[Rfam]
A member of the RNA family "Bacterial small signal recognition particle RNA" from Actinomyces sp. S4-C9, 96 nucleotides long. Its family is annotated with signal recognition particle, plasma membrane targeting and SRP-dependent cotranslational protein targeting to membrane, signal sequence recognition in the Gene Ontology. Rfam classes the family as a non-coding RNA gene. From the family's description: The signal recognition particle (SRP) is a universally conserved ribonucleoprotein involved in the co-translational targeting of proteins to membranes. The base pairs follow the family's consensus structure, which is taken from published work.
RNA sequence: AAUGAUCCCUCGCGUGACGGUAUCACCCGAACCUCCCCAGGGCCGGAAGGCAGCAAGGAUACGGUAGCUCUGCCGGGUACGUGAGGGAUCCUUUUA
Numbered sequence: 001a002a003u004g005a006u007c008c009c010u011c012g013c014g015u016g017a018c019g020g021u022a023u024c025a026c027c028c029g030a031a032c033c034u035c036c037c038c039a040g041g042g043c044c045g046g047a048a049g050g051c052a053g054c055a056a057g058g059a060u061a062c063g064g065u066a067g068c069u070c071u072g073c074c075g076g077g078u079a080c081g082u083g084a085g086g087g088a089u090c091c092u093u094u095u096a
Base pairs, nucleotide, nucleotide: 004090005089006088007087008086009085010084011083012082013081014080015077018075019074020073021072022071024067027064028063029062034059035058036057042051043050044049